About this RNA: Rfam assigns this 95-nucleotide RNA from Ipomoea nil to the family "MIR2275 microRNA precursor family".
RNA sequence: GAGUUGAAAAUGAGAAUUGGAGGAAGCCAAAUGGUUCUUGGCUAGAGUGAAAUCAAUUAUCCAUUUGGUUUCCUCCAAUAUCUCAUCUUCACCUC
Numbered sequence: 001g002a003g004u005u006g007a008a009a010a011u012g013a014g015a016a017u018u019g020g021a022g023g024a025a026g027c028c029a030a031a032u033g034g035u036u037c038u039u040g041g042c043u044a045g046a047g048u049g050a051a052a053u054c055a056a057u058u059a060u061c062c063a064u065u066u067g068g069u070u071u072c073c074u075c076c077a078a079u080a081u082c083u084c085a086u087c088u089u090c091a092c093c094u095c
Stems, first nucleotide, its partner, number of pairs: 005091004011085004016079006023072008032063002

Taxonomically the source falls in Ipomoea (Eukaryota, Spermatophyta, eudicotyledons, Ipomoeeae).
The base pairs follow the family's consensus structure, which was predicted with RNAalifold.